[Rfam]
RNA sequence: UCUAGGGUGACCUAGAAUCUGAAGGAAGUCAGCGGCAAAUCUCCGCCUCGAGGAACACAAACUUCAUAUAAGGCUAGAUGUUCUUGGAUGAGACUGCUAUACAAGUUGAAGUCCUUACUGCCAAAGGGAGCAUAGAGUAAAUGGAGCGAGGACAUGGAGAGGAAGAAUGUGUG
Numbered sequence: 001u002c003u004a005g006g007g008u009g010a011c012c013u014a015g016a017a018u019c020u021g022a023a024g025g026a027a028g029u030c031a032g033c034g035g036c037a038a039a040u041c042u043c044c045g046c047c048u049c050g051a052g053g054a055a056c057a058c059a060a061a062c063u064u065c066a067u068a069u070a071a072g073g074c075u076a077g078a079u080g081u082u083c084u085u086g087g088a089u090g091a092g093a094c095u096g097c098u099a100u101a102c103a104a105g106u107u108g109a110a111g112u113c114c115u116u117a118c119u120g121c122c123a124a125a126g127g128g129a130g131c132a133u134a135g136a137g138u139a140a141a142u143g144g145a146g147c148g149a150g151g152a153c154a155u156g157g158a159g160a161g162g163a164a165g166a167a168u169g170u171g172u173g
Stems, first nucleotide, its partner, number of pairs: 001016006030171002036165001040160006046151005062146006073138003078133006086114004092107004